Annotation: The family of this 210-nucleotide RNA sequence from Triticum aestivum is "U2 spliceosomal RNA". The base pairs follow the family's consensus structure, which is taken from published work. The family has 208 seed sequences and 71,512 matches in Rfam 15.1. The literature on the family includes a 1997 paper in Nucleic Acids Res by Zwieb, "The uRNA database". Its family is annotated with mRNA branch site recognition, U2 snRNP and pre-mRNA branch point binding in the Gene Ontology. By type it is a spliceosomal small nuclear RNA. Lineage of the source: Eukaryota > Tracheophyta > Spermatophyta > Poaceae > Triticum. Rfam describes the family as follows. U2 is a small nuclear RNA (snRNA) component of the spliceosome (involved in pre-mRNA splicing). Its Rfam clan is "U2 clan".
RNA sequence: AUACAUUUCUCAGCCUUUUGGCUAAGAUCAAAUAUAGUAUCUGUUCUUAUCAGUUUAAUAUAUGAUAUAUGAUAUGUGAGCCAUGUGCCCACAAUAAUAUUAAAUUUAUUUUUUAUGGAAAAAGUUCAUCACAGUGGCUUGCCAUUGGGGCCCUUUGUUGUUGUUUGGGCGUUGCACUACAGGUCUACAGCCCAGGUAGACGCACCCCAA
Numbered sequence: 001a002u003a004c005a006u007u008u009c010u011c012a013g014c015c016u017u018u019u020g021g022c023u024a025a026g027a028u029c030a031a032a033u034a035u036a037g038u039a040u041c042u043g044u045u046c047u048u049a050u051c052a053g054u055u056u057a058a059u060a061u062a063u064g065a066u067a068u069a070u071g072a073u074a075u076g077u078g079a080g081c082c083a084u085g086u087g088c089c090c091a092c093a094a095u096a097a098u099a100u101u102a103a104a105u106u107u108a109u110u111u112u113u114u115a116u117g118g119a120a121a122a123a124g125u126u127c128a129u130c131a132c133a134g135u136g137g138c139u140u141g142c143c144a145u146u147g148g149g150g151c152c153c154u155u156u157g158u159u160g161u162u163g164u165u166u167g168g169g170c171g172u173u174g175c176a177c178u179a180c181a182g183g184u185c186u187a188c189a190g191c192c193c194a195g196g197u198a199g200a201c202g203c204a205c206c207c208c209a210a
Base pairs, nucleotide, nucleotide: 008027009026010025012023013022014021015020048074049073050072051071052070076092077091078090080088081087121155122154124152126150127149134145135144136143137142159202160201161200162199165195166194167193168192169191170190